[Rfam]
RNA: MIR2912 microRNA precursor family
RNA sequence: UCUAGAACUCGAGAUAUGGGUUAAACAUUGAACAGUAUCUGGGUUGCAGGACAGAUUCGGACUUCUCCGUUGAAAACGGCCUUUUUAAAUCUUGGACUCUUCAUGAAAGUUUAAGGCCUAUGUCUUAGCUUUCCAUC
Numbered sequence: 001u002c003u004a005g006a007a008c009u010c011g012a013g014a015u016a017u018g019g020g021u022u023a024a025a026c027a028u029u030g031a032a033c034a035g036u037a038u039c040u041g042g043g044u045u046g047c048a049g050g051a052c053a054g055a056u057u058c059g060g061a062c063u064u065c066u067c068c069g070u071u072g073a074a075a076a077c078g079g080c081c082u083u084u085u086u087a088a089a090u091c092u093u094g095g096a097c098u099c100u101u102c103a104u105g106a107a108a109g110u111u112u113a114a115g116g117c118c119u120a121u122g123u124c125u126u127a128g129c130u131u132u133c134c135a136u137c
Base pairs, nucleotide, nucleotide: 003135005133006132007131008128009127011126012125013124014123015122016121017120018119019118020117021115022114024112025111027110028109029108035104036103041100042099043098045096048093049092050091051090054086055085059081060080062079063078